[Rfam]
RNA sequence: CGGGCAGGCCUUUCAGGCAUCCUCUCCCAAACUUUUCCGGCCCGGUUGGCUCGUCCAGCCGGGCCUUUUUCUUGUCCGCG
Numbered sequence: 001c002g003g004g005c006a007g008g009c010c011u012u013u014c015a016g017g018c019a020u021c022c023u024c025u026c027c028c029a030a031a032c033u034u035u036u037c038c039g040g041c042c043c044g045g046u047u048g049g050c051u052c053g054u055c056c057a058g059c060c061g062g063g064c065c066u067u068u069u070u071c072u073u074g075u076c077c078g079c080g
Stems, first nucleotide, its partner, number of pairs: 008018004039065011
This 80-nucleotide RNA sequence from Erythrobacter litoralis belongs to the Rfam family "Makes More Granules Regulator RNA (mmgR)".
Its Rfam clan is "suhB sRNA clan".
SuhB later renamed mmgR (makes more granules regulator) was a putative non-coding RNA found multiple times in the Agrobacterium tumefaciens genome and related alpha-proteobacteria.